[Rfam]
The record is a 75-nucleotide sequence from Lawsonibacter hominis, which matches "Fluoride riboswitch aptamer (crcB RNA motif)" in Rfam. A search with the family's covariance model found it, with a score of 46 bits.

Nucleotides: 075
Base pairs, nucleotide, nucleotide: 010026011025012024013023016066017065018064019063020062021061047056048055049054
Number, partner (000 for none) and nucleotide at each position: 001000u002000c003000a004000g005000a006000u007000c008000a009000c010026g011025g012024g013023a014000a015000u016066g017065a018064g019063g020062u021061u022000c023013u024012c025011c026010c027000g028000g029000g030000g031000c032000c033000g034000c035000a036000a037000g038000g039000c040000c041000c042000g043000a044000a045000c046000c047056g048055c049054c050000g051000u052000c053000c054049g055048g056047c057000u058000g059000a060000u061021g062020a063019c064018u065017u066016c067000u068000g069000c070000a071000c072000g073000u074000u075000u
The literature on the family includes a 2012 paper in Nature by Ren et al., "Fluoride ion encapsulation by Mg2+ ions and phosphates in a fluoride riboswitch". Pairs were carried over by alignment from the consensus structure, which is taken from published work. Taxonomically the source falls in Lawsonibacter (Bacteria, Bacillati, Bacillota, Oscillospiraceae).